FMN riboswitch aptamer (RFN element): a 115-nucleotide RNA from Butyrivibrio fibrisolvens. The family's consensus secondary structure is taken from published work. NCBI's taxonomy places the organism under Bacteria, Bacillota, Lachnospirales, Lachnospiraceae, Butyrivibrio.

RNA sequence: AAUAAACUUCGGGGCUGGGUGCGAUUCCCAACCGGCGGUAUAGCCCGCGAGCCUUAUGGCAUGACUUGGUGAGAUUCCGGGGCCGACAGUAAAGUCUGGAUGAGAGAAGUAGGAU
Numbered sequence: 001a002a003u004a005a006a007c008u009u010c011g012g013g014g015c016u017g018g019g020u021g022c023g024a025u026u027c028c029c030a031a032c033c034g035g036c037g038g039u040a041u042a043g044c045c046c047g048c049g050a051g052c053c054u055u056a057u058g059g060c061a062u063g064a065c066u067u068g069g070u071g072a073g074a075u076u077c078c079g080g081g082g083c084c085g086a087c088a089g090u091a092a093a094g095u096c097u098g099g100a101u102g103a104g105a106g107a108a109g110u111a112g113g114a115u
Stems, first nucleotide, its partner, number of pairs: 003113001006110005017029003031095002033085002035048004043083002053059001065081005087098003
Dot-bracket structure: ..(..(((((......(((.......))).[[((((((....[[))))....(.....).....(((((.......)))))]])).(((....]]))).......)))))..)..